[Rfam]
A member of the RNA family "FMN riboswitch aptamer (RFN element)" from Robertmurraya siralis, 146 nucleotides long.
RNA sequence: GAUUUCCUUCGGGGUCGGGUGCAAUUCCCAACCGGCGGUGAUGAGGGGUACCUCUUAGUCCGUGACCCGUUUUCACAUAUAUGGAAACGGUGGAUUUGGUGAAAUUCCAAAGCCGACAGUAAUAGUCUGGAUGGGAGAAGGAAUAU
Numbered sequence: 001g002a003u004u005u006c007c008u009u010c011g012g013g014g015u016c017g018g019g020u021g022c023a024a025u026u027c028c029c030a031a032c033c034g035g036c037g038g039u040g041a042u043g044a045g046g047g048g049u050a051c052c053u054c055u056u057a058g059u060c061c062g063u064g065a066c067c068c069g070u071u072u073u074c075a076c077a078u079a080u081a082u083g084g085a086a087a088c089g090g091u092g093g094a095u096u097u098g099g100u101g102a103a104a105u106u107c108c109a110a111a112g113c114c115g116a117c118a119g120u121a122a123u124a125g126u127c128u129g130g131a132u133g134g135g136a137g138a139a140g141g142a143a144u145a146u
Stems, first nucleotide, its partner, number of pairs: 004143007017029003031126002033115002035063004058113002067090004095111005117129003